[Rfam]
RNA: Group II catalytic intron D1-D4-3
RNA sequence: UCCAUUGUGAGAUGGAAUCUGAAGGAAGCCUGAGGCAAACCAUUGGUCCGACGGACAGAAAUCAUGUAUAAGGCUUACAGUUCGGAUAAGACUGCUGAACAAGUUGAAGUCCAAUAGCUAACAGAGGACUGGUAGUAGACAUGGCGGAUAGGUGAUGAGAAAGAUAGCGUA
Dot-bracket structure: ((((((....)))))).............(.....(....((((((((((...........((((((.....(((..((((.(((((..((((........))))...))))..............)))))..)))..)))))))))))...))))).....).....)..